[Rfam]
RNA sequence: GCGCGUCGCGCGGGAGAGAACUCCAUGCGAGUCGCCGAAGGCGUAACCCCCGGAAUCGCUCAGGCACAAGGGACCGCGCGCGUAGU
Number, nucleotide and partner (000 for none) at each position: 001g000002c000003g000004c000005g000006u000007c080008g079009c078010g077011c076012g075013g074014g000015a000016g000017a000018g000019a000020a032021c031022u030023c029024c000025a000026u000027g000028c000029g023030a022031g021032u020033c000034g065035c064036c063037g061038a060039a000040g000041g059042c058043g057044u000045a000046a000047c053048c052049c000050c000051c000052g048053g047054a000055a000056u000057c043058g042059c041060u038061c037062a000063g036064g035065c034066a000067c000068a000069a000070g000071g000072g000073a000074c013075c012076g011077c010078g009079c008080g007081c000082g000083u000084a000085g000086u000
The family of this 86-nucleotide RNA from Thauera sinica is "Glycine riboswitch aptamer". The organism belongs to Thauera, within Bacteria. It scores 62 bits against the family's covariance model.